[Rfam]
The family of this 76-nucleotide RNA sequence from Ameiurus melas is "mir-7563 microRNA precursor family". Rfam 15.1 lists 362 matches to the family in 2 species. Pairs were carried over by alignment from the consensus structure, which was predicted with RNAalifold.

RNA sequence: ACCGCGUUUUUACCUACUAUAUAGUAGGUGAGAUAUAUGUAUUUCAGCUACUAUAUAGACGGUAAGUACGCGGUUU
Numbered sequence: 001a002c003c004g005c006g007u008u009u010u011u012a013c014c015u016a017c018u019a020u021a022u023a024g025u026a027g028g029u030g031a032g033a034u035a036u037a038u039g040u041a042u043u044u045c046a047g048c049u050a051c052u053a054u055a056u057a058g059a060c061g062g063u064a065a066g067u068a069c070g071c072g073g074u075u076u
Stems, first nucleotide, its partner, number of pairs: 001074007009066006017058011029046003033042003